[Rfam]
RNA sequence: GCCACAUGAUGAUCAAUACUUGACAUUAACACUCUGUGUAAAGAUGACAUUCAUCUAUCACCCAAGACUGAUGGCA
Numbered sequence: 001g002c003c004a005c006a007u008g009a010u011g012a013u014c015a016a017u018a019c020u021u022g023a024c025a026u027u028a029a030c031a032c033u034c035u036g037u038g039u040a041a042a043g044a045u046g047a048c049a050u051u052c053a054u055c056u057a058u059c060a061c062c063c064a065a066g067a068c069u070g071a072u073g074g075c076a
Base pairs, nucleotide, nucleotide: 001075002074003073004072029039030038031037032036